RNA sequence: GUCUUGUCAGUGAUGUUAUCAAUAUAAAUGUCUGAACAUAUGAAUAUCAGUGAUUCUUGCUAUGUGACUGAGACAAGAC
Number, nucleotide and partner (000 for none) at each position: 001g000002u078003c077004u076005u075006g074007u073008c072009a000010g000011u000012g000013a000014u000015g000016u000017u000018a000019u000020c000021a000022a000023u000024a000025u000026a000027a000028a000029u000030g000031u000032c000033u000034g000035a000036a000037c000038a000039u000040a000041u000042g000043a000044a000045u000046a000047u000048c000049a000050g000051u000052g000053a000054u000055u000056c000057u000058u000059g000060c000061u000062a000063u000064g000065u000066g000067a000068c000069u000070g000071a000072g008073a007074c006075a005076a004077g003078a002079c000
This 79-nucleotide sequence from Esox lucius belongs to the Rfam family "Small nucleolar RNA SNORD72". For this family Rfam cites "RNomics: an experimental approach that identifies 201 candidates for novel, small, non-messenger RNAs in mouse" (Huttenhofer et al., EMBO J, 2001). From the family's description: snoRNA HBII-240 belongs to the CD family of snoRNAs. It is the human orthologue of the mouse MBII-240 and is predicted to guide 2'O-ribose methylation of the large 28S rRNA at residue U4590. Pairs were carried over by alignment from the consensus structure. A search with the family's covariance model found it, with a score of 66 bits. Taxonomically the source falls in Esox (Eukaryota, Metazoa, Bilateria, Deuterostomia). Its family is annotated with RNA processing and nucleolus in the Gene Ontology. The family's RNA type in Rfam is C/D-box small nucleolar RNA.